[Rfam]
RNA sequence: GGCGGUGUAGCUCAGUUGGUAGAGCAAACGACUCAUAAUCGUUGUGUCGCCGGUUCAAGUCCGGCCAUCGCUA
Numbered sequence: 001g002g003c004g005g006u007g008u009a010g011c012u013c014a015g016u017u018g019g020u021a022g023a024g025c026a027a028a029c030g031a032c033u034c035a036u037a038a039u040c041g042u043u044g045u046g047u048c049g050c051c052g053g054u055u056c057a058a059g060u061c062c063g064g065c066c067a068u069c070g071c072u073a
Stems, first nucleotide, its partner, number of pairs: 001072007010025004027043005049065005
A member of the RNA family "tRNA" from Rhodococcus sp. RD6.2, 73 nucleotides long. Pairs were carried over by alignment from the consensus structure, which is taken from published work. The organism belongs to Rhodococcus, within Bacteria.